[Rfam]
RNA sequence: AGUGCAUAAGGUUGUCAUGGGUGGUGGCUCGCUCCCUUUUAGAAAGGGGGUGAUGCCAAUGGCAGUAUUUGAGGCAAUUGUUCUGAUGAUUUCUUUUGGAACGUUAAUCGUUGCUAUCCUGUCGUUUAACAAUAAAAAAUAACCACCCUACGCGCCUGACAGCUAAGUAGGUGGUUAUUUUAUCAACCAAUUAGCGAGUCGCCCCUUUGAAGGGCUACUGCACUGAUACCGUUAGUGUUACAGCAUUAACG
Number, nucleotide and partner (000 for none) at each position: 001a224002g223003u222004g221005c220006a000007u000008a216009a000010g200011g199012u198013u197014g000015u000016c154017a000018u152019g149020g148021g147022u000023g144024g143025u142026g000027g000028c000029u053030c052031g051032c000033u049034c048035c047036c046037u045038u000039u000040u000041a000042g000043a000044a000045a037046g036047g035048g034049g033050g000051u031052g030053a029054u000055g000056c000057c000058a000059a000060u000061g123062g122063c121064a120065g119066u000067a117068u000069u000070u000071g000072a000073g000074g000075c088076a087077a000078u000079u000080g000081u000082u000083c000084u000085g000086a000087u076088g075089a000090u000091u000092u000093c000094u000095u000096u000097u000098g115099g114100a000101a112102c000103g000104u000105u000106a000107a000108u000109c000110g000111u000112u101113g000114c099115u098116a000117u067118c000119c065120u064121g063122u062123c061124g000125u000126u000127u000128a000129a000130c000131a000132a000133u000134a000135a000136a000137a000138a000139a000140u000141a000142a025143c024144c023145a000146c000147c021148c020149u019150a000151c000152g018153c000154g016155c000156c000157u000158g000159a000160c000161a000162g000163c000164u182165a181166a180167g000168u000169a000170g000171g000172u000173g000174g000175u000176u000177a000178u000179u000180u166181u165182a164183u000184c000185a000186a000187c000188c000189a000190a000191u000192u000193a000194g000195c000196g000197a013198g012199u011200c010201g215202c214203c213204c212205c000206u000207u000208u000209g000210a000211a000212g204213g203214g202215c201216u008217a000218c000219u000220g005221c004222a003223c002224u001225g000226a000227u000228a000229c000230c251231g250232u249233u248234a247235g246236u245237g244238u243239u000240a000241c000242a000243g238244c237245a236246u235247u234248a233249a232250c231251g230